[Rfam]
RNA sequence: CACGUCAGUAGAAGCGGUCAGCCGCGUUAGUAUCUCACGAUACAACAUCCGGUCGGGAAUUGCUGGCAUG
Numbered sequence: 001c002a003c004g005u006c007a008g009u010a011g012a013a014g015c016g017g018u019c020a021g022c023c024g025c026g027u028u029a030g031u032a033u034c035u036c037a038c039g040a041u042a043c044a045a046c047a048u049c050c051g052g053u054c055g056g057g058a059a060u061u062g063c064u065g066g067c068a069u070g
Stems, first nucleotide, its partner, number of pairs: 005066006015055001018057002021053004

Notes: The record is a 70-nucleotide sequence from Ensifer meliloti, which matches "Xanthine riboswitch aptamer (NMT1 RNA)" in Rfam. Rfam's curators put it in the seed alignment. The family's consensus secondary structure is taken from published work.